[Rfam]
RNA sequence: GUGGUACUCAAAAUGUGGGGCACUUUGUGUUCUGGAAUAAUGUGCUACCAUGUUUUGAGGGUUAC
Numbered sequence: 001g002u003g004g005u006a007c008u009c010a011a012a013a014u015g016u017g018g019g020g021c022a023c024u025u026u027g028u029g030u031u032c033u034g035g036a037a038u039a040a041u042g043u044g045c046u047a048c049c050a051u052g053u054u055u056u057g058a059g060g061g062u063u064a065c
Base pairs, nucleotide, nucleotide: 004062005061007059008058009057010056011055012054015051016050017049018048019046020045021044022043023042025040026039027038
Rfam assigns this 65-nucleotide RNA sequence from Cricetulus griseus to the family "mir-290 microRNA precursor family". Taxonomically the source falls in Cricetulus (Eukaryota, Sarcopterygii, Theria, Euarchontoglires). Clan: mir-290 clan. The match comes from Rfam's covariance-model search (53 bits). On this family, see Suh et al., Dev Biol 2004: "Human embryonic stem cells express a unique set of microRNAs". The family has 31 seed sequences and 565 matches in Rfam 15.1. Rfam links the family to the GO terms miRNA-mediated post-transcriptional gene silencing and RISC complex.